[Rfam]
RNA sequence: CAACGACAAUACUAAACCACCUGCGAAGGUGGGACGGAAAGCCCACGGGUCUCCCUGAGACAGCCGGGUCGCCGAU
Numbered sequence: 001c002a003a004c005g006a007c008a009a010u011a012c013u014a015a016a017c018c019a020c021c022u023g024c025g026a027a028g029g030u031g032g033g034a035c036g037g038a039a040a041g042c043c044c045a046c047g048g049g050u051c052u053c054c055c056u057g058a059g060a061c062a063g064c065c066g067g068g069u070c071g072c073c074g075a076u
Stems, first nucleotide, its partner, number of pairs: 012037002017032006041069003046066003049061005

Rfam assigns this 76-nucleotide RNA from Citrifermentans bemidjiense to the family "c-di-GMP-I riboswitch aptamer".
A search with the family's covariance model found it, with a score of 48 bits.
The family is grouped with related families in Rfam's "c-di-GMP_I riboswitch clan".
NCBI's taxonomy places the organism under Bacteria, Pseudomonadati, Geobacteraceae, Citrifermentans, Citrifermentans bemidjiense.
Rfam describes the family as follows. GEMM was predicted in a large-scale screen for bacterial structured RNA regulatory elements.